[Rfam]
RNA sequence: GCCCGGAUUCCGCUACUUCAAGGCAGAGACGGGGGACCCAGAGUCUCCGGGCCAUGGCUUCCAUGCCGGCCCUAGGGGUGAAGCCGCAACGCCACGCGUGCGGCCGGAUGACCUCAUCCGAAUCCGACAGCUAACUCCGCAGGCGCCGAGAGGUAUA
Numbered sequence: 001g002c003c004c005g006g007a008u009u010c011c012g013c014u015a016c017u018u019c020a021a022g023g024c025a026g027a028g029a030c031g032g033g034g035g036a037c038c039c040a041g042a043g044u045c046u047c048c049g050g051g052c053c054a055u056g057g058c059u060u061c062c063a064u065g066c067c068g069g070c071c072c073u074a075g076g077g078g079u080g081a082a083g084c085c086g087c088a089a090c091g092c093c094a095c096g097c098g099u100g101c102g103g104c105c106g107g108a109u110g111a112c113c114u115c116a117u118c119c120g121a122a123u124c125c126g127a128c129a130g131c132u133a134a135c136u137c138c139g140c141a142g143g144c145g146c147c148g149a150g151a152g153g154u155a156u157a
Stems, first nucleotide, its partner, number of pairs: 001144003008028003030139005039075001076125003084103004106119004
Annotation
A member of the RNA family "c-di-AMP riboswitch aptamer (ydaO/yuaA leader)" from Arthrobacter cavernae, 157 nucleotides long. Rfam's curators write: This family represents a conserved RNA structure found upstream of the ydaO and yuaA genes in Bacillus subtilis and related genes in other bacteria. The ydaO/yuaA element is thought to act as a genetic 'off' switch for the ydaO and yuaA genes in its native state. A search with the family's covariance model found it, with a score of 56 bits. Taxonomically the source falls in Arthrobacter (Bacteria, Bacillati, Micrococcales, Micrococcaceae).